[Rfam]
RNA sequence: UGCCAUCGCUAAGUCAAGGCUUCUUCCUGCGACAGUAUGUCGUGUUUUUCUCGAUGGGAGUUUUGUCUGUUACAGCUUUGGUAGAUUGACGCUGGCCCGCGCCGACCUUCUUUCUGAAGCUAGGCUGACUGGGUUUCGUUUUGAAAACCAGUCGUUAAGGGCUAAGUUGUGUUCCGUUUUUGAGUUGAGGCUUGCAUCUGCCGUAUGGCGGGCUUUCGUAGCAAGUCUCUUAGUAACGUUCCACACAUUC
Number, nucleotide and partner (000 for none) at each position: 001u000002g000003c081004c080005a079006u000007c000008g000009c000010u000011a000012a000013g000014u000015c000016a000017a068018g067019g066020c065021u000022u000023c060024u059025u058026c057027c056028u000029g043030c042031g041032a040033c039034a000035g000036u000037a000038u000039g033040u032041c031042g030043u029044g000045u000046u000047u000048u000049u000050c000051u000052c000053g000054a000055u000056g027057g026058g025059a024060g023061u000062u000063u000064u000065g020066u019067c018068u017069g000070u000071u000072a000073c000074a000075g000076c000077u000078u000079u005080g004081g003082u000083a000084g000085a000086u000087u000088g000089a000090c000091g000092c000093u164094g163095g162096c161097c160098c159099g000100c000101g125102c124103c123104g000105a121106c000107c119108u118109u117110c116111u000112u000113u000114c000115u000116g110117a109118a108119g107120c000121u105122a000123g103124g102125c101126u000127g153128a152129c151130u150131g149132g148133g000134u146135u145136u144137c143138g142139u000140u000141u000142u138143g137144a136145a135146a134147a000148c132149c131150a130151g129152u128153c127154g000155u000156u000157a000158a000159g098160g097161g096162c095163u094164a093165a000166g000167u000168u000169g244170u243171g242172u000173u000174c000175c238176g237177u236178u000179u000180u000181u000182g000183a000184g000185u000186u000187g229188a228189g227190g226191c000192u000193u223194g222195c221196a000197u000198c000199u211200g000201c000202c208203g000204u000205a000206u000207g000208g202209c000210g000211g199212g000213c000214u000215u000216u000217c000218g000219u000220a000221g195222c194223a193224a000225g000226u190227c189228u188229c187230u000231u000232a000233g000234u000235a000236a177237c176238g175239u000240u000241c000242c171243a170244c169245a000246c000247a000248u000249u000250c000
Rfam assigns this 250-nucleotide sequence from Aspergillus steynii to the family "Small nucleolar RNA snR191". Its family is annotated with nucleolus and RNA processing in the Gene Ontology. The organism belongs to Aspergillus steynii, within Eukaryota. It is annotated as an H/ACA-box small nucleolar RNA.